SAM riboswitch aptamer (S box leader): a 109-nucleotide RNA sequence from Oribacterium sp. C9.
RNA sequence: UACUUAUUCAGAGUCGGUGGAGCUACAUAGGAGCUAUGAAACCGCAGCAACCCCGUAAAAACGGAAGGUGCUAACCUGAGCGAACUAAUUUUGUUUCGAACAAUAAGAG
Numbered sequence: 001u002a003c004u005u006a007u008u009c010a011g012a013g014u015c016g017g018u019g020g021a022g023c024u025a026c027a028u029a030g031g032a033g034c035u036a037u038g039a040a041a042c043c044g045c046a047g048c049a050a051c052c053c054c055g056u057a058a059a060a061a062c063g064g065a066a067g068g069u070g071c072u073a074a075c076c077u078g079a080g081c082g083a084a085c086u087a088a089u090u091u092u093g094u095u096u097c098g099a100a101c102a103a104u105a106a107g108a109g
Stems, first nucleotide, its partner, number of pairs: 001109001003107006013045001015044004022034003028080001031077001046072004051068002053064004081098004086093001